terC RNA: a 61-nucleotide RNA sequence from Gillisella ampelina.
RNA sequence: CCCGUGGUCCGGGCCCCUCUGGCAGCAGCCGCCGGCGCUUCUGCGAUGUCGGACCGUUUUC
Number, nucleotide and partner (000 for none) at each position: 001c000002c000003c000004g000005u000006g055007g054008u053009c052010c051011g050012g049013g000014c000015c000016c000017c000018u000019c000020u000021g000022g044023c043024a042025g041026c000027a039028g038029c037030c000031g000032c000033c000034g000035g000036c000037g029038c028039u027040u000041c025042u024043g023044c022045g000046a000047u000048g000049u012050c011051g010052g009053a008054c007055c006056g000057u000058u000059u000060u000061c000
The family's consensus secondary structure is taken from published work. By type it is a cis-regulatory element.